[Rfam]
This 93-nucleotide RNA from Oryzias sinensis belongs to the Rfam family "Small nucleolar SNORD12/SNORD106". NCBI's taxonomy places the organism under Eukaryota, Chordata, Euteleosteomorpha, Adrianichthyoidei, Oryzias. Clan: SNORD12 clan. On this family, see Huttenhofer et al., EMBO J 2001: "RNomics: an experimental approach that identifies 201 candidates for novel, small, non-messenger RNAs in mouse".
RNA sequence: GAUGUGGUUAGUGAUGCAUAUGCUUUUUUCCCCAUCUUAUCGACCAUGGUGAAAAGCUGCUGAUGUUAAGCCAGUUAUGUCUGAAACCACAUC
Number, nucleotide and partner (000 for none) at each position: 001g093002a092003u091004g090005u089006g088007g087008u086009u085010a000011g000012u000013g000014a000015u000016g000017c000018a000019u000020a000021u000022g000023c000024u000025u000026u000027u000028u000029u000030c000031c000032c000033c000034a000035u000036c000037u000038u000039a000040u000041c000042g000043a000044c000045c000046a000047u000048g000049g000050u000051g000052a000053a000054a000055a000056g000057c000058u000059g000060c000061u000062g000063a000064u000065g000066u000067u000068a000069a000070g000071c000072c000073a000074g000075u000076u000077a000078u000079g000080u000081c000082u000083g000084a000085a009086a008087c007088c006089a005090c004091a003092u002093c001

By type it is a C/D-box small nucleolar RNA. A search with the family's covariance model found it, with a score of 66 bits.